This 123-nucleotide sequence from Geotrypetes seraphini belongs to the Rfam family "U4 spliceosomal RNA". The family's consensus secondary structure is taken from published work. Gene Ontology terms of the family: spliceosomal tri-snRNP complex assembly and U4 snRNP. The organism belongs to Geotrypetes, within Eukaryota. The literature on the family includes a 1990 paper in Nucleic Acids Res by Thomas et al., "The spliceosomal snRNAs of Caenorhabditis elegans". The family has 177 seed sequences and 32,178 matches in Rfam 15.1. It scores 49 bits against the family's covariance model. Rfam classes the family as a spliceosomal small nuclear RNA.
Nucleotides: 123
Base pairs, nucleotide, nucleotide: 020052021051022050023049024048026047027046028045034042035041074103075102076101077100078099079098080097081096082095084093086091
Number, partner (000 for none) and nucleotide at each position: 001000u002000u003000g004000u005000u006000u007000g008000c009000g010000c011000a012000g013000u014000a015000a016000c017000a018000g019000u020052a021051u022050c023049g024048u025000a026047g027046c028045c029000a030000a031000u032000g033000a034042g035041g036000u037000u038000a039000a040000u041035c042034c043000g044000a045028g046027g047026c048024g049023u050022g051021a052020u053000u054000a055000u056000u057000u058000c059000u060000a061000a062000u063000a064000g065000a066000a067000a068000u069000a070000u071000u072000u073000u074103a075102a076101u077100a078099u079098g080097u081096g082095c083000a084093a085000a086091a087000a088000c089000a090000u091086u092000a093084u094000a095082g096081c097080a098079c099078a100077u101076a102075u103074u104000a105000c106000u107000u108000u109000c110000u111000a112000a113000g114000u115000u116000a117000a118000u119000a120000g121000g122000c123000a